The family of this 123-nucleotide sequence from Borborobacter arsenicus is "Alphaproteobacterial ar14".
Gene Ontology term of the family: biological process involved in symbiotic interaction.
The literature on the family includes a 2012 paper in RNA Biol by del Val et al., "A survey of sRNA families in alpha-proteobacteria".
Smr14C2 was renamed NfeR1 (Nodule Formation Efficiency RNA) highly expressed in salt stress and during the symbiotic interaction on legume roots.
A search with the family's covariance model found it, with a score of 88 bits.
Lineage of the source: Bacteria > Pseudomonadati > Pseudomonadota > Hyphomicrobiales > Borborobacter.
[Rfam]
RNA sequence: AGAAUUCUGUCGGCGCCUACCUCCUCCCAGGUUCCGACCGAUACGGUCAGCUUUCACCUCCUCCCGAUUGCUGACCGACCCUAACGACACCCGCCGGACCUCCUCCCCCGGCGGGUGUUGUCG
Numbered sequence: 001a002g003a004a005u006u007c008u009g010u011c012g013g014c015g016c017c018u019a020c021c022u023c024c025u026c027c028c029a030g031g032u033u034c035c036g037a038c039c040g041a042u043a044c045g046g047u048c049a050g051c052u053u054u055c056a057c058c059u060c061c062u063c064c065c066g067a068u069u070g071c072u073g074a075c076c077g078a079c080c081c082u083a084a085c086g087a088c089a090c091c092c093g094c095c096g097g098a099c100c101u102c103c104u105c106c107c108c109c110g111g112c113g114g115g116u117g118u119u120g121u122c123g
Stems, first nucleotide, its partner, number of pairs: 007040001009038001011036003015032003045076007054067001087118011